[Rfam]
RNA sequence: GUGGGCUACGGUGACAUGAAGCCCAUCACCGUGGGUGGGAAAAUCGUAGGCUCGCUGUGCGCCAUAGCGGGCGUCUUAACCAUUGCGCUCCCGGUGCCGGUCAUUGUUUCCAAC
Numbered sequence: 001g002u003g004g005g006c007u008a009c010g011g012u013g014a015c016a017u018g019a020a021g022c023c024c025a026u027c028a029c030c031g032u033g034g035g036u037g038g039g040a041a042a043a044u045c046g047u048a049g050g051c052u053c054g055c056u057g058u059g060c061g062c063c064a065u066a067g068c069g070g071g072c073g074u075c076u077u078a079a080c081c082a083u084u085g086c087g088c089u090c091c092c093g094g095u096g097c098c099g100g101u102c103a104u105u106g107u108u109u110c111c112a113a114c
Stems, first nucleotide, its partner, number of pairs: 001114002004111002008107004013102003018097001020095001037077004049063003
RNA: Potassium channel RNA editing signal
Organism: Cynoglossus semilaevis